[Rfam]
RNA sequence: CGCUCUUGUUUCUCUUCAUAUCGUAUAAAUCUUUCGCCUUUUACUAAAGAUUUCCGUGGAGGGGAACAACAAGAGUUUAUUCCAAUUUUUGAUGCCCUGCAUUUGUGUGGGGU
Numbered sequence: 001c002g003c004u005c006u007u008g009u010u011u012c013u014c015u016u017c018a019u020a021u022c023g024u025a026u027a028a029a030u031c032u033u034u035c036g037c038c039u040u041u042u043a044c045u046a047a048a049g050a051u052u053u054c055c056g057u058g059g060a061g062g063g064g065a066a067c068a069a070c071a072a073g074a075g076u077u078u079a080u081u082c083c084a085a086u087u088u089u090u091g092a093u094g095c096c097c098u099g100c101a102u103u104u105g106u107g108u109g110g111g112g113u
Stems, first nucleotide, its partner, number of pairs: 003075004008067011027053008095112006

The record is a 113-nucleotide sequence from Parambassis ranga, which matches "U5 spliceosomal RNA" in Rfam. U5 RNA is a component of both types of known spliceosome. The precise function of this molecule is unknown, though it is known that the 5' loop is required for splice site selection and p220 binding, and that both the 3' stem-loop and the Sm site are important for Sm protein binding and cap methylation. Rfam 15.1 lists 28,527 matches to the family in 2,489 species. The match comes from Rfam's covariance-model search (92 bits). The base pairs follow the family's consensus structure, which is taken from published work.